RNA sequence: CUACAGACUUAAUUGGAUUGAGCCUUGGUAUGGAAACAUACUAAGUGUUCACUUUCAAAUUUACAGAAACCUUGGAAUUAACAAAAAUGGGCAAUCCUGAGCCAAAUCAUGUUUUCUAAGAACAAACAACGGCUCAAAAAAAAUGAUAGGUGCAGAGACUCAAUGAAAUCUAUUCUAACAAAUAGAGUUAAAUGCGUCCGUAGAGGACUCUUUACAUCGAUACUUCAGAAAGAAAAAGAAUGAAGUGAAGGAUAAACAUAUAUACAUACGUAUUGAAUGCUUUAUCAAAUGAUUAAUGAUGACCCGAAUCCGUAGUUUUUCUAUAAGAAAUCGAAGAAUUGCUGUGAAUCCAUUCUAAAUUGGAGAAAGAAUAGAAUAUUCAUUGAUCGAAUCCUUCACUCCAUAGUGUGAUAGAUCUUUUGAAGAACUGAAUAAUCGGACGAGAAUAAAGAUAGAGUCCCGUUCUACAUGUCAAUACCGA
Numbered sequence: 001c002u003a004c005a006g007a008c009u010u011a012a013u014u015g016g017a018u019u020g021a022g023c024c025u026u027g028g029u030a031u032g033g034a035a036a037c038a039u040a041c042u043a044a045g046u047g048u049u050c051a052c053u054u055u056c057a058a059a060u061u062u063a064c065a066g067a068a069a070c071c072u073u074g075g076a077a078u079u080a081a082c083a084a085a086a087a088u089g090g091g092c093a094a095u096c097c098u099g100a101g102c103c104a105a106a107u108c109a110u111g112u113u114u115u116c117u118a119a120g121a122a123c124a125a126a127c128a129a130c131g132g133c134u135c136a137a138a139a140a141a142a143a144u145g146a147u148a149g150g151u152g153c154a155g156a157g158a159c160u161c162a163a164u165g166a167a168a169u170c171u172a173u174u175c176u177a178a179c180a181a182a183u184a185g186a187g188u189u190a191a192a193u194g195c196g197u198c199c200g201u202a203g204a205g206g207a208c209u210c211u212u213u214a215c216a217u218c219g220a221u222a223c224u225u226c227a228g229a230a231a232g233a234a235a236a237a238g239a240a241u242g243a244a245g246u247g248a249a250g251g252a253u254a255a256a257c258a259u260a261u262a263u264a265c266a267u268a269c270g271u272a273u274u275g276a277a278u279g280c281u282u283u284a285u286c287a288a289a290u291g292a293u294u295a296a297u298g299a300u301g302a303c304c305c306g307a308a309u310c311c312g313u314a315g316u317u318u319u320u321c322u323a324u325a326a327g328a329a330a331u332c333g334a335a336g337a338a339u340u341g342c343u344g345u346g347a348a349u350c351c352a353u354u355c356u357a358a359a360u361u362g363g364a365g366a367a368a369g370a371a372u373a374g375a376a377u378a379u380u381c382a383u384u385g386a387u388c389g390a391a392u393c394c395u396u397c398a399c400u401c402c403a404u405a406g407u408g409u410g411a412u413a414g415a416u417c418u419u420u421u422g423a424a425g426a427a428c429u430g431a432a433u434a435a436u437c438g439g440a441c442g443a444g445a446a447u448a449a450a451g452a453u454a455g456a457g458u459c460c461c462g463u464u465c466u467a468c469a470u471g472u473c474a475a476u477a478c479c480g481a
Base pairs, nucleotide, nucleotide: 005025006024008022009021010020011019012018013017029040030039031038053168054167056165057164061100062099063098066095070091071090072089101151102150106147107146108145109144114140115139117137155460157459158458159457160456161455173446174445175444176443469476470475

Rfam assigns this 481-nucleotide sequence from Solanum lycopersicum to the family "Group I catalytic intron".
On this family, see Cech, Annu Rev Biochem 1990: "Self-splicing of group I introns".
The family's consensus secondary structure is taken from published work.
It scores 96 bits against the family's covariance model.